[Rfam]
RNA sequence: UUCAAAACGUUGAAGAGGAAAAGUAUGCGUUGUAUGCUCUAAAGAGAGAGUCACCACUGGCUGAGAGUGACUUGAGUUGAGACAUCGCAGAAAUGCACCUCUGAGUGUUAUGUUGAAAUGUUAGUAGGCAUGACCGGUUCGUCACCGUUAAUAGACUACGAGUGGGAAAGUUUUUUCCAAUCAGAGUGGAACCGCGCAUACAGCGUCUCUGUC
Numbered sequence: 001u002u003c004a005a006a007a008c009g010u011u012g013a014a015g016a017g018g019a020a021a022a023g024u025a026u027g028c029g030u031u032g033u034a035u036g037c038u039c040u041a042a043a044g045a046g047a048g049a050g051u052c053a054c055c056a057c058u059g060g061c062u063g064a065g066a067g068u069g070a071c072u073u074g075a076g077u078u079g080a081g082a083c084a085u086c087g088c089a090g091a092a093a094u095g096c097a098c099c100u101c102u103g104a105g106u107g108u109u110a111u112g113u114u115g116a117a118a119u120g121u122u123a124g125u126a127g128g129c130a131u132g133a134c135c136g137g138u139u140c141g142u143c144a145c146c147g148u149u150a151a152u153a154g155a156c157u158a159c160g161a162g163u164g165g166g167a168a169a170g171u172u173u174u175u176u177c178c179a180a181u182c183a184g185a186g187u188g189g190a191a192c193c194g195c196g197c198a199u200a201c202a203g204c205g206u207c208u209c210u211g212u213c
Stems, first nucleotide, its partner, number of pairs: 007106002015101004026089004031084001037076003049072006108133007135147003165178005183210004194206004